[Rfam]
RNA sequence: GUGCAUCCAGUUGAACCCACAGAUUACGAAUUUGCCAAUUAUGAGUUGGACGCUUUAAGCAUUCAGCCAUGGAUGC
Numbered sequence: 001g002u003g004c005a006u007c008c009a010g011u012u013g014a015a016c017c018c019a020c021a022g023a024u025u026a027c028g029a030a031u032u033u034g035c036c037a038a039u040u041a042u043g044a045g046u047u048g049g050a051c052g053c054u055u056u057a058a059g060c061a062u063u064c065a066g067c068c069a070u071g072g073a074u075g076c
Stems, first nucleotide, its partner, number of pairs: 003076006010027002041070003045067006052060001

Plastid-ycf2 5UTR RNA: a 76-nucleotide RNA from Corchorus olitorius.
It scores 72 bits against the family's covariance model.
Rfam describes the family as follows. Plastid ycf2 is a non-coding RNA (ncRNA) recognised in plastids. It was found in the prime untranslated region (5UTR) of ycf2 genes, it presents a tRNA-like motif which suggests it can be involved in mRNA maturation, particularly involved in defining the precise 5' end of the transcript.
Rfam 15.1 lists 3,521 matches to the family in 417 species.
A reference for the family is Richter et al. (2023), "Retrograde signaling in plants: A critical review focusing on the GUN pathway and beyond", Plant Commun.
The family's RNA type in Rfam is cis-regulatory element.
Pairs were carried over by alignment from the consensus structure, which was predicted with LocARNA.